[Rfam]
RNA sequence: CACAGCUGGUGGCGCACUUCCUGAAUAUCGGGCAGUGUCGUACGUCUGCGUCAUGCAAACAGAUACCUGGCCCGCCACUGAGCGGGCUUUUUUAU
Dot-bracket structure: ........(((..(((((.((((.....)))).)))))..))).........................((((((((...).))))))).......
Shown here is a 95-nucleotide RNA, a member of the family "Tryptophan operon leader". The literature on the family includes a 1982 paper in Annu Rev Genet by Kolter and Yanofsky, "Attenuation in amino acid biosynthetic operons". It is annotated as a cis-regulatory leader. At least 6 amino acid operons are known to be regulated by attenuation.